[Rfam]
RNA sequence: UAUUGCAAGUUUGUCGAGCUGUAGACAGUAGGUGUCCCGAGGACUUAAACAAACCUACCGAGGCUGCGACCACCGGAUCGGAUGAAGGGUAAAACGACCUUUUCCUGAAACGCAUGGACGUAGUCUCCGCCUCGGCGGAGUUUUUUGUUUGCUAG
Numbered sequence: 001u002a003u004u005g006c007a008a009g010u011u012u013g014u015c016g017a018g019c020u021g022u023a024g025a026c027a028g029u030a031g032g033u034g035u036c037c038c039g040a041g042g043a044c045u046u047a048a049a050c051a052a053a054c055c056u057a058c059c060g061a062g063g064c065u066g067c068g069a070c071c072a073c074c075g076g077a078u079c080g081g082a083u084g085a086a087g088g089g090u091a092a093a094a095c096g097a098c099c100u101u102u103u104c105c106u107g108a109a110a111c112g113c114a115u116g117g118a119c120g121u122a123g124u125c126u127c128c129g130c131c132u133c134g135g136c137g138g139a140g141u142u143u144u145u146u147g148u149u150u151g152c153u154a155g
Stems, first nucleotide, its partner, number of pairs: 028058006034044003125140006